Rfam assigns this 78-nucleotide RNA sequence from Equus caballus to the family "Small nucleolar RNA SNORD83". Gene Ontology terms of the family: nucleolus and RNA processing. Rfam classes the family as a C/D-box small nucleolar RNA. Pairs were carried over by alignment from the consensus structure, which was predicted with PFOLD. Rfam 15.1 lists 1,393 matches to the family in 644 species.
RNA sequence: GCCAUAUGAUGUUUUCAUUUGGAGAAACGAGCGCUUUGCGCAAUGAUGACCUUAAUCUAUCACCCUUGACUGAUGGCU
Number, nucleotide and partner (000 for none) at each position: 001g077002c076003c075004a074005u000006a000007u000008g000009a000010u000011g000012u000013u000014u000015u000016c000017a000018u000019u000020u000021g000022g000023a000024g000025a000026a000027a000028c000029g000030a000031g041032c040033g039034c038035u000036u000037u000038g034039c033040g032041c031042a000043a000044u000045g000046a000047u000048g000049a000050c000051c000052u000053u000054a000055a000056u000057c000058u000059a000060u000061c000062a000063c000064c000065c000066u000067u000068g000069a000070c000071u000072g000073a000074u004075g003076g002077c001078u000